Description:
The family of this 113-nucleotide sequence is "L2-Alphaproteobacteria ribosomal protein leader". A reference for the family is Eckert and Weinberg (2020), "Discovery of 20 novel ribosomal leader candidates in bacteria and archaea", BMC Microbiol. The base pairs follow the family's consensus structure, which is taken from published work. Rfam classes the family as a cis-regulatory leader. The sequence is in the family's curated seed alignment.

[Rfam]
RNA sequence: GGGCACCUUAGUAGCCGGUUUUGCACGAAAUCUGCGGACGGGGGCCUUAAACAUAGCGCAGGAAAACCUGCGCGCGGCGGGGAGACCCGCCGGAGCUAAACGGAAGACAGAAA
Number, nucleotide and partner (000 for none) at each position: 001g047002g046003g045004c044005a000006c043007c042008u041009u000010a000011g000012u000013a000014g000015c000016c000017g000018g000019u000020u000021u000022u000023g000024c000025a000026c000027g000028a000029a000030a000031u000032c000033u000034g000035c000036g000037g000038a000039c000040g000041g008042g007043g006044g004045c003046c002047u001048u000049a000050a000051a000052c000053a000054u000055a000056g000057c000058g090059c089060a000061g087062g086063a000064a000065a000066a000067c000068c000069u000070g000071c000072g000073c000074g000075c000076g000077g000078c000079g000080g000081g000082g000083a000084g000085a000086c062087c061088c000089g059090c058091c000092g000093g000094a000095g000096c000097u000098a000099a000100a000101c000102g000103g000104a000105a000106g000107a000108c000109a000110g000111a000112a000113a000